RNA: c-di-GMP-I riboswitch aptamer
Organism: Thermoanaerobacteraceae bacterium SP2
RNA sequence: CAGCAAUAAGGGCAAACUUAUAGAAAGGUAAGGGCGCAAAGCCACAGGGUCUAAAGUGCCCCCGCACUAUGACAGCAUUGAUAUUAAA
Dot-bracket structure: ...........((...(((((......)))))...))..(.(...(.((((....((((....))))...)))..).).).)......